[Rfam]
RNA sequence: CUCUGGAGAGCGUUUCGUAAUGAAACCACCAAAGAGGACAGCCGAAUUUUGGUAAACUUUCAGGUGAAAGGACAGGG
Numbered sequence: 001c002u003c004u005g006g007a008g009a010g011c012g013u014u015u016c017g018u019a020a021u022g023a024a025a026c027c028a029c030c031a032a033a034g035a036g037g038a039c040a041g042c043c044g045a046a047u048u049u050u051g052g053u054a055a056a057c058u059u060u061c062a063g064g065u066g067a068a069a070g071g072a073c074a075g076g077g
Base pairs, nucleotide, nucleotide: 001077002076003075004074005073012026013025014024015023028065029064030063032060035059036058037057042052043051
Background
This 77-nucleotide RNA from Jeotgalibacillus campisalis belongs to the Rfam family "Glycine riboswitch aptamer". A search with the family's covariance model found it, with a score of 38 bits. NCBI's taxonomy places the organism under Bacteria, Bacillota, Bacilli, Caryophanales, Jeotgalibacillus. The pairing is the family consensus, mapped onto this sequence.